[Rfam]
RNA: Small nucleolar RNA R21
RNA sequence: UAUCCCAAUGAAGAUCAUGUUCAAAAAUUAAAGUAGUGGACUGAUUCUAUUGAUGAUUUCUUGAUUCUGAGGGAUU
Numbered sequence: 001u002a003u004c005c006c007a008a009u010g011a012a013g014a015u016c017a018u019g020u021u022c023a024a025a026a027a028u029u030a031a032a033g034u035a036g037u038g039g040a041c042u043g044a045u046u047c048u049a050u051u052g053a054u055g056a057u058u059u060c061u062u063g064a065u066u067c068u069g070a071g072g073g074a075u076u
Stems, first nucleotide, its partner, number of pairs: 002075005